[Rfam]
RNA sequence: AAAUAAAAGCAGAAGCACCCGCUUCUCGCCUUAGCUGACAAGGUCGCUGGGCUGGAUAGUUUCACUGGUUCUUUUAGGUGAAUUAUGUGCGGGUUCUAUAAGAGAACUCGUUUUUUUAUUACCGU
Numbered sequence: 001a002a003a004u005a006a007a008a009g010c011a012g013a014a015g016c017a018c019c020c021g022c023u024u025c026u027c028g029c030c031u032u033a034g035c036u037g038a039c040a041a042g043g044u045c046g047c048u049g050g051g052c053u054g055g056a057u058a059g060u061u062u063c064a065c066u067g068g069u070u071c072u073u074u075u076a077g078g079u080g081a082a083u084u085a086u087g088u089g090c091g092g093g094u095u096c097u098a099u100a101a102g103a104g105a106a107c108u109c110g111u112u113u114u115u116u117u118a119u120u121a122c123c124g125u
Stems, first nucleotide, its partner, number of pairs: 011026006028052003036046004089111009
Shown here is a 125-nucleotide sequence from Enterococcus ratti, a member of the family "Ribosomal protein L20 leader". Rfam's curators write: This family is a putative r-protein leader autoregulatory structure found in B. subtilis and other low-GC Gram-positive bacteria. It is annotated as a cis-regulatory leader. The literature on the family includes a 1994 paper in Prog Nucleic Acid Res Mol Biol by Zengel and Lindahl, "Diverse mechanisms for regulating ribosomal protein synthesis in Escherichia coli".